[Rfam]
RNA sequence: CAGCUUAAAGGCGGUGGAGUUCGCCUUAAACUGCCCUCUCUCUUUGGGCCAAUAACUCCUGCAAAAAC
Number, nucleotide and partner (000 for none) at each position: 001c000002a000003g000004c000005u000006u000007a000008a000009a000010g025011g024012c023013g022014g000015u000016g059017g058018a057019g056020u055021u054022c013023g012024c011025c010026u000027u000028a000029a000030a000031c000032u000033g049034c048035c047036c046037u000038c000039u000040c000041u000042c000043u000044u000045u000046g036047g035048g034049c033050c000051a000052a000053u000054a021055a020056c019057u018058c017059c016060u000061g000062c000063a000064a000065a000066a000067a000068c000

Background
The family of this 68-nucleotide RNA from Hippea maritima is "Fluoride riboswitch aptamer (crcB RNA motif)". It scores 47 bits against the family's covariance model. NCBI's taxonomy places the organism under Bacteria, Pseudomonadati, Hippeaceae, Hippea, Hippea maritima. Rfam 15.1 lists 2,293 matches to the family in 1,982 species.